[Rfam]
Nucleotides: 076
Stems, first nucleotide, its partner, number of pairs: 014059005021052005029044006
Number, partner (000 for none) and nucleotide at each position: 001000c002000g003000a004000a005000a006000a007000a008000g009000a010000g011000g012000c013000c014059u015058u016057c017056u018055c019000u020000u021052c022051c023050c024049g025048g026000u027000u028000c029044u030043u031042c032041c033040c034039g035000g036000a037000g038000u039034c040033g041032g042031g043030a044029a045000a046000a047000g048025c049024u050023g051022g052021g053000u054000u055018g056017a057016g058015a059014g060000g061000g062000c063000g064000a065000a066000a067000a068000a069000g070000g071000a072000a073000g074000a075000g076000g

mir-320 microRNA precursor family: a 76-nucleotide sequence from Bos taurus. For this family Rfam cites "Many novel mammalian microRNA candidates identified by extensive cloning and RAKE analysis" (Berezikov et al., Genome Res, 2006).